RNA: Small nucleolar RNA SNORA4
Organism: Vicugna pacos
RNA sequence: CUAUUAAAAGGUGGUUUGGAGAGGAUUUUUCAUCACCUUUGUCAGCUUAAGCUAUGUGGGGGAAUGAAGACCACGCUCCACAGUGAGCCGUGUGACUUAUAUGUGGUUCCUUACUAUUUUGUGGCCUAAGAG
Numbered sequence: 001c002u003a004u005u006a007a008a009a010g011g012u013g014g015u016u017u018g019g020a021g022a023g024g025a026u027u028u029u030u031c032a033u034c035a036c037c038u039u040u041g042u043c044a045g046c047u048u049a050a051g052c053u054a055u056g057u058g059g060g061g062g063a064a065u066g067a068a069g070a071c072c073a074c075g076c077u078c079c080a081c082a083g084u085g086a087g088c089c090g091u092g093u094g095a096c097u098u099a100u101a102u103g104u105g106g107u108u109c110c111u112u113a114c115u116a117u118u119u120u121g122u123g124g125c126c127u128a129a130g131a132g
Base pairs, nucleotide, nucleotide: 004059005058006057008055012054013053014052015051016050017049018046019043020042022040023037024036026035068127069126071124072123073122074121075120082112083111085109086108087107088106089105090104091103092102093101